RNA sequence: UAAAAAGAUAGAGGCAGCGAUGCAGAUGAGUACUUUUUGGAGAAGGCAUUCGAUGAAAAGAAGGAAAGGCAAUCAUCGCCGAAAAGAAAGAAAUGGCAGUUUCGUUCUUUGGUACCUGGGGGAAUACCUCAUGUACUCCUUCAGUCGAAGAGGAGUUAUCUUAAUA
Dot-bracket structure: .....((((((.....((((((..(.......((((((...................))))))......)...))))))...((((((.(((((....))))).))))))(((((.(((((.....))))).))))).((((....)))).....)))))).....
RNA: Lysine riboswitch aptamer
Organism: Ileibacterium valens